RNA sequence: AUAUAAGCAAAAAUCACUUUUCUAGGUUCAUUGCAUAAUUAAUGUAUUUGGUCUAUAUUAUAGACCAAAUACAUUAGCUAUGCAAUGAACCUAGAAAGGUAAUUUUUGCUUAUAU
Numbered sequence: 001a002u003a004u005a006a007g008c009a010a011a012a013a014u015c016a017c018u019u020u021u022c023u024a025g026g027u028u029c030a031u032u033g034c035a036u037a038a039u040u041a042a043u044g045u046a047u048u049u050g051g052u053c054u055a056u057a058u059u060a061u062a063g064a065c066c067a068a069a070u071a072c073a074u075u076a077g078c079u080a081u082g083c084a085a086u087g088a089a090c091c092u093a094g095a096a097a098g099g100u101a102a103u104u105u106u107u108g109c110u111u112a113u114a115u
Stems, first nucleotide, its partner, number of pairs: 002114006009107005016100010027089011039077006049067004
Rfam assigns this 115-nucleotide RNA sequence from Trifolium medium to the family "MIR2593 microRNA precursor family". The match comes from Rfam's covariance-model search (104 bits). Its family is annotated with RISC complex and miRNA-mediated post-transcriptional gene silencing in the Gene Ontology.